isrG Hfq binding RNA: a 293-nucleotide RNA sequence from Oryzias latipes. The match comes from Rfam's covariance-model search (103 bits). Taxonomically the source falls in Oryzias (Eukaryota, Opisthokonta, Adrianichthyoidei, Adrianichthyidae). By type it is a small RNA.
[Rfam]
RNA sequence: CUGCAGCAGCAGCAGCAGCAGAACAACAGCAGCAGCAACAGCAGCAGCAGCAGCAUCAGCUGCAGCAGCAGCAGCAGCAGCAGCAGAACAACAGCAGCUGCAGCUGAUGCUGCUGCUGUUGUUCUGCUGCUGCUGCUGCUGCAGCUGAUGCUGCUGCUGCCGCUGCUGCAGCUGAUGCUGCUGCUGUUGUUCUGCUGCUGCUGCUGCUGCUGCUGCAGCUGAUGCUGCUGCUGCUGCUGCUGCCACUGCUGCUGCUGCAGCUCCAGCUGCUGCUGCUGCUGCUGCCACUGCUG
Numbered sequence: 001c002u003g004c005a006g007c008a009g010c011a012g013c014a015g016c017a018g019c020a021g022a023a024c025a026a027c028a029g030c031a032g033c034a035g036c037a038a039c040a041g042c043a044g045c046a047g048c049a050g051c052a053g054c055a056u057c058a059g060c061u062g063c064a065g066c067a068g069c070a071g072c073a074g075c076a077g078c079a080g081c082a083g084c085a086g087a088a089c090a091a092c093a094g095c096a097g098c099u100g101c102a103g104c105u106g107a108u109g110c111u112g113c114u115g116c117u118g119u120u121g122u123u124c125u126g127c128u129g130c131u132g133c134u135g136c137u138g139c140u141g142c143a144g145c146u147g148a149u150g151c152u153g154c155u156g157c158u159g160c161c162g163c164u165g166c167u168g169c170a171g172c173u174g175a176u177g178c179u180g181c182u183g184c185u186g187u188u189g190u191u192c193u194g195c196u197g198c199u200g201c202u203g204c205u206g207c208u209g210c211u212g213c214u215g216c217a218g219c220u221g222a223u224g225c226u227g228c229u230g231c232u233g234c235u236g237c238u239g240c241u242g243c244c245a246c247u248g249c250u251g252c253u254g255c256u257g258c259a260g261c262u263c264c265a266g267c268u269g270c271u272g273c274u275g276c277u278g279c280u281g282c283u284g285c286c287a288c289u290g291c292u293g
Stems, first nucleotide, its partner, number of pairs: 006285005012279003017274004027269002029255008041243005059075005065069001076134005084126003088122011135234002138231002141228005150219003154215001156213002159210002162207002165172002177204002183198002186195002260267002